[Rfam]
Notes
The family of this 132-nucleotide sequence from Salix koriyanagi is "MIR480 microRNA precursor family". On this family, see Lu et al., Plant Cell 2005: "Novel and mechanical stress-responsive MicroRNAs in Populus trichocarpa that are absent from Arabidopsis". Its family is annotated with miRNA-mediated post-transcriptional gene silencing and RISC complex in the Gene Ontology.
RNA sequence: UAACUUAUUUAUGAUACAUUUUUAUUUAAUUAUAGCAGAUUCAUACCUGAUUAUUCAGAAUCAUUCAUUAUUCAAAGUCGGUUGCAUCAAUUCUAUUACCAAAUUAUUAUUUUUCUUGUGGGAGUGAAAGAA
Numbered sequence: 001u002a003a004c005u006u007a008u009u010u011a012u013g014a015u016a017c018a019u020u021u022u023u024a025u026u027u028a029a030u031u032a033u034a035g036c037a038g039a040u041u042c043a044u045a046c047c048u049g050a051u052u053a054u055u056c057a058g059a060a061u062c063a064u065u066c067a068u069u070a071u072u073c074a075a076a077g078u079c080g081g082u083u084g085c086a087u088c089a090a091u092u093c094u095a096u097u098a099c100c101a102a103a104u105u106a107u108u109a110u111u112u113u114u115c116u117u118g119u120g121g122g123a124g125u126g127a128a129a130g131a132a
Stems, first nucleotide, its partner, number of pairs: 004130003009124001012121001014119002024110002027106005